Shown here is a 112-nucleotide RNA sequence from Tripterygium wilfordii, a member of the family "MIR396 microRNA precursor family". The family has 26 seed sequences and 744 matches in Rfam 15.1. A search with the family's covariance model found it, with a score of 96 bits. Rfam links the family to the GO terms RISC complex and miRNA-mediated post-transcriptional gene silencing.
RNA sequence: CUUUGUAUUCUUCCACAGCUUUCUUGAACUGCAUCUCUUAGAUCGUUUGUUGUGUGACACAACAAAAUUCGUUGUCUUUGCGGUUCAAUAAAGCUGUGGGAAGAUACAGACA
Numbered sequence: 001c002u003u004u005g006u007a008u009u010c011u012u013c014c015a016c017a018g019c020u021u022u023c024u025u026g027a028a029c030u031g032c033a034u035c036u037c038u039u040a041g042a043u044c045g046u047u048u049g050u051u052g053u054g055u056g057a058c059a060c061a062a063c064a065a066a067a068u069u070c071g072u073u074g075u076c077u078u079u080g081c082g083g084u085u086c087a088a089u090a091a092a093g094c095u096g097u098g099g100g101a102a103g104a105u106a107c108a109g110a111c112a
Stems, first nucleotide, its partner, number of pairs: 003109005013099003017095006024088004029083005